Record summary:
A member of the RNA family "Guanidine-II riboswitch aptamer (mini-ykkC)" from Penaeus vannamei, 53 nucleotides long. Rfam 15.1 lists 1,589 matches to the family in 1,229 species. The source organism's lineage runs through Eukaryota, Eumetazoa, Altocrustacea, Stomatocarida and Penaeus. A search with the family's covariance model found it, with a score of 36 bits.

RNA sequence: CCUCGAGGACGACCUCAUCCUCGAGGACGACCUCAUCCUCGAGGACGACCUCA
Numbered sequence: 001c002c003u004c005g006a007g008g009a010c011g012a013c014c015u016c017a018u019c020c021u022c023g024a025g026g027a028c029g030a031c032c033u034c035a036u037c038c039u040c041g042a043g044g045a046c047g048a049c050c051u052c053a
Base pairs, nucleotide, nucleotide: 001026002025003024004023005022006021007020008019041052042051043050044049